Rfam assigns this 76-nucleotide RNA sequence from Pipistrellus kuhlii to the family "mir-9229 microRNA precursor family".
[Rfam]
RNA sequence: GAGACACCCUUAUGGGGCAAGAUUUGCUUCAGUGGGGCUGUGGUACUCACUGAAUCUGCCCCAUGAUUGUAUCUCU
Numbered sequence: 001g002a003g004a005c006a007c008c009c010u011u012a013u014g015g016g017g018c019a020a021g022a023u024u025u026g027c028u029u030c031a032g033u034g035g036g037g038c039u040g041u042g043g044u045a046c047u048c049a050c051u052g053a054a055u056c057u058g059c060c061c062c063a064u065g066a067u068u069g070u071a072u073c074u075c076u
Stems, first nucleotide, its partner, number of pairs: 001075004006070002010066003014062006021056003029053008037044002

Lineage of the source: Eukaryota > Metazoa > Tetrapoda > Boreoeutheria > Pipistrellus. The base pairs follow the family's consensus structure, which was predicted with RNAalifold.